Shown here is an 86-nucleotide RNA sequence from Phoenix dactylifera, a member of the family "small nucleolar RNA snoR114".
Its family is annotated with nucleolus and RNA processing in the Gene Ontology.
Rfam 15.1 lists 1,645 matches to the family in 183 species.
Pairs were carried over by alignment from the consensus structure, which was predicted with RNAalifold.
[Rfam]
RNA sequence: GAGCAAUGAGGAGAACAGCGCUUCCUGUGAUGCCGGGGCGCAUCACAACCGUCUGAAUAUCAGAUGACCUCAGCGCUCCCGAGCUC
Numbered sequence: 001g002a003g004c005a006a007u008g009a010g011g012a013g014a015a016c017a018g019c020g021c022u023u024c025c026u027g028u029g030a031u032g033c034c035g036g037g038g039c040g041c042a043u044c045a046c047a048a049c050c051g052u053c054u055g056a057a058u059a060u061c062a063g064a065u066g067a068c069c070u071c072a073g074c075g076c077u078c079c080c081g082a083g084c085u086c
Base pairs, nucleotide, nucleotide: 001086002085003084004083
The family's RNA type in Rfam is C/D-box small nucleolar RNA.